[Rfam]
RNA: L4-Archaeoglobi ribosomal protein leades
RNA sequence: CUGAUGACGGCGUAUGGGUGGAAAUCGGAAUCGAUCGCCCAAUUCCCCUUCGCACCGAUAAGGUGUACCAGUUGGGGGAGCGCCUUGACGUCAG
Numbered sequence: 001c002u003g004a005u006g007a008c009g010g011c012g013u014a015u016g017g018g019u020g021g022a023a024a025u026c027g028g029a030a031u032c033g034a035u036c037g038c039c040c041a042a043u044u045c046c047c048c049u050u051c052g053c054a055c056c057g058a059u060a061a062g063g064u065g066u067a068c069c070a071g072u073u074g075g076g077g078g079a080g081c082g083c084c085u086u087g088a089c090g091u092c093a094g
Stems, first nucleotide, its partner, number of pairs: 001094005009084005015041004024035004045078005052066005